[Rfam]
RNA sequence: GGUCAGUGAUGUGUGGGCAUGUAUUAGCUGAGCUUUCGAUGAUGUGUAAUAACAGUAAAGCUCUAGAAUUACGCUGAGACCUU
Numbered sequence: 001g002g003u004c005a006g007u008g009a010u011g012u013g014u015g016g017g018c019a020u021g022u023a024u025u026a027g028c029u030g031a032g033c034u035u036u037c038g039a040u041g042a043u044g045u046g047u048a049a050u051a052a053c054a055g056u057a058a059a060g061c062u063c064u065a066g067a068a069u070u071a072c073g074c075u076g077a078g079a080c081c082u083u
Stems, first nucleotide, its partner, number of pairs: 001081004

About this RNA:
Small nucleolar RNA SNORD45: an 83-nucleotide RNA sequence from Catagonus wagneri. By type it is a C/D-box small nucleolar RNA. The base pairs follow the family's consensus structure, which was predicted with PFOLD. On this family, see Galardi et al., Mol Cell Biol 2002: "Purified box C/D snoRNPs are able to reproduce site-specific 2'-O-methylation of target RNA in vitro". The match comes from Rfam's covariance-model search (64 bits).